RNA: Tryptophan operon leader
RNA sequence: CGUAACUGGUGGCUGACGACCUGACACGGGCCGUGAGAACGCUAUUGCUUAACGCAAACAGAUACCCCGGCCCGCAGCAGCGGGCUUUUUUAU
Numbered sequence: 001c002g003u004a005a006c007u008g009g010u011g012g013c014u015g016a017c018g019a020c021c022u023g024a025c026a027c028g029g030g031c032c033g034u035g036a037g038a039a040c041g042c043u044a045u046u047g048c049u050u051a052a053c054g055c056a057a058a059c060a061g062a063u064a065c066c067c068c069g070g071c072c073c074g075c076a077g078c079a080g081c082g083g084g085c086u087u088u089u090u091u092a093u
Base pairs, nucleotide, nucleotide: 009042010041011040014036016034017033018032020030021029022028023027069086070085071084072083073082074081075080